The record is a 124-nucleotide sequence from Propithecus coquereli, which matches "Small Cajal body specific RNA 4" in Rfam. A search with the family's covariance model found it, with a score of 72 bits. Rfam's curators write: scaRNAs are a specific class of small nuclear RNAs which localise to the Cajal bodies and guide the modification of RNA polymerase II transcribed spliceosomal RNAs U1, U2, U4, U5 and U12. ACA26 belongs to the H/ACA box class of guide RNAs as it has the predicted hairpin-hinge-hairpin-tail structure, conserved H/ACA-box motifs and is found associated with GAR1. Rfam classes the family as a small Cajal body RNA. Its family is annotated with Cajal body, RNA processing and nucleolus in the Gene Ontology. The family's consensus secondary structure was predicted with RNAfold.

RNA sequence: GCUGGAGGCCUAGGAAGGCCGAGUCUGACAAAGCAAGACUUUGCUAAUACGUUCCUCCCAAAAACAGGGUUGGAGAGAGCAGCCCUCCUGGGCGGUCCUGGGCUGCCUGGCCAGCUGGCCGGUG
Numbered sequence: 001g002c003u004g005g006a007g008g009c010c011u012a013g014g015a016a017g018g019c020c021g022a023g024u025c026u027g028a029c030a031a032a033g034c035a036a037g038a039c040u041u042u043g044c045u046a047a048u049a050c051g052u053u054c055c056u057c058c059c060a061a062a063a064a065c066a067g068g069g070u071u072g073g074a075g076a077g078a079g080c081a082g083c084c085c086u087c088c089u090g091g092g093c094g095g096u097c098c099u100g101g102g103c104u105g106c107c108u109g110g111c112c113a114g115c116u117g118g119c120c121g122g123u124g
Base pairs, nucleotide, nucleotide: 003060004058005057006056007055008054017045018044019043021041022040023039024038025037026036068116069115070114078108079107080105081104082103083102084101085100090097091096